[Rfam]
RNA sequence: AUAUGUUGACAAUAAAUGCUGUACUGCUAUCAGUGUUUAUUCGAGUAUUCAAAGGUAUGCUUAACCCUAAAGCAGUGUAGCGAAAAACGUGAAAGAAAAGCACUUGU
Numbered sequence: 001a002u003a004u005g006u007u008g009a010c011a012a013u014a015a016a017u018g019c020u021g022u023a024c025u026g027c028u029a030u031c032a033g034u035g036u037u038u039a040u041u042c043g044a045g046u047a048u049u050c051a052a053a054g055g056u057a058u059g060c061u062u063a064a065c066c067c068u069a070a071a072g073c074a075g076u077g078u079a080g081c082g083a084a085a086a087a088c089g090u091g092a093a094a095g096a097a098a099a100g101c102a103c104u105u106g107u
Base pairs, nucleotide, nucleotide: 001048002047003046004045011041012040013039014038015037016036017035018034019033020032021031024075025074026073027072058102059101060100080090081089082088